RNA sequence: UGCACCGUGUUGGGCUGUAGCAGUCAUGCCACGUUAUGAAACCCAACGCGAUGUGACUGAUGCAGGCUGACGUGACGUGU
Numbered sequence: 001u002g003c004a005c006c007g008u009g010u011u012g013g014g015c016u017g018u019a020g021c022a023g024u025c026a027u028g029c030c031a032c033g034u035u036a037u038g039a040a041a042c043c044c045a046a047c048g049c050g051a052u053g054u055g056a057c058u059g060a061u062g063c064a065g066g067c068u069g070a071c072g073u074g075a076c077g078u079g080u
Base pairs, nucleotide, nucleotide: 002080003079004078005077006074007073008072009071010070011069012068013067015065016064017063018062019061021059022058023057024056025055026054027053028052030050032048033047034046035045